The family of this 145-nucleotide sequence is "RT-14 RNA". The family's RNA type in Rfam is small RNA. Pairs were carried over by alignment from the consensus structure, which is taken from published work.
RNA sequence: CUCUAAUAUUAUUCUAGAUAAUAUAUUUUACGGAAUGUAUUCAAUGAUAUAUUAGAUAUUAAAGGGAUUUAUUCCUUCCUAAUUUAGGUAAAAAUAUAUCAGCAAAUUAUGUAUUAGUAGGCUAAGCAGAAUAUACAUAAUUUGC
Numbered sequence: 001c002u003c004u005a006a007u008a009u010u011a012u013u014c015u016a017g018a019u020a021a022u023a024u025a026u027u028u029u030a031c032g033g034a035a036u037g038u039a040u041u042c043a044a045u046g047a048u049a050u051a052u053u054a055g056a057u058a059u060u061a062a063a064g065g066g067a068u069u070u071a072u073u074c075c076u077u078c079c080u081a082a083u084u085u086a087g088g089u090a091a092a093a094a095u096a097u098a099u100c101a102g103c104a105a106a107u108u109a110u111g112u113a114u115u116a117g118u119a120g121g122c123u124a125a126g127c128a129g130a131a132u133a134u135a136c137a138u139a140a141u142u143u144g145c
Stems, first nucleotide, its partner, number of pairs: 003055007013047002020041009078088004102145013121127002